Small nucleolar RNA SNORA74: a 204-nucleotide sequence from Sphenodon punctatus. A search with the family's covariance model found it, with a score of 134 bits. Rfam describes the family as follows. U19 belongs to the H/ACA class of snoRNAs. snoRNAs bind a number of proteins (including dyskerin, Gar1p and Nop10p in the case of the H/ACA class) to form snoRNP complexes. This class are thought to guide the sites of modification of uridines to pseudouridines by forming direct base pairing interactions with substrate RNAs. Targets may include ribosomal and spliceosomal RNAs but the exact functions of many snoRNAs, including U19, are not confirmed. Co-precipitation of U19 snoRNA with RNase MRP RNA suggests that U19 may be involved in pre-rRNA processing. Gene Ontology terms of the family: nucleolus and RNA processing.

RNA sequence: UCCAGCAGUUGUCAGCUGGCCAGUGCAGUUUAGUGCCUGUGCUAGUGUUACACUGCUGGGAGAGAAACGUGCCACCAGAGUUACUGGGUGCUGCCAGUACUGUUUUAGUGCCAGUCAGUGCCCAGGUUUGGUAGCAUUCUGCAUCCUUGAGAGUGGACUGACCCUUUGCUCAAUAGGGUUAAUUCUAGACUGGAUGCAAACACA
Numbered sequence: 001u002c003c004a005g006c007a008g009u010u011g012u013c014a015g016c017u018g019g020c021c022a023g024u025g026c027a028g029u030u031u032a033g034u035g036c037c038u039g040u041g042c043u044a045g046u047g048u049u050a051c052a053c054u055g056c057u058g059g060g061a062g063a064g065a066a067a068c069g070u071g072c073c074a075c076c077a078g079a080g081u082u083a084c085u086g087g088g089u090g091c092u093g094c095c096a097g098u099a100c101u102g103u104u105u106u107a108g109u110g111c112c113a114g115u116c117a118g119u120g121c122c123c124a125g126g127u128u129u130g131g132u133a134g135c136a137u138u139c140u141g142c143a144u145c146c147u148u149g150a151g152a153g154u155g156g157a158c159u160g161a162c163c164c165u166u167u168g169c170u171c172a173a174u175a176g177g178g179u180u181a182a183u184u185c186u187a188g189a190c191u192g193g194a195u196g197c198a199a200a201c202a203c204a
Stems, first nucleotide, its partner, number of pairs: 001060009011051002015046006021039003069137004074132004083127003087123001088121006095114001097111005140198007155185003159181007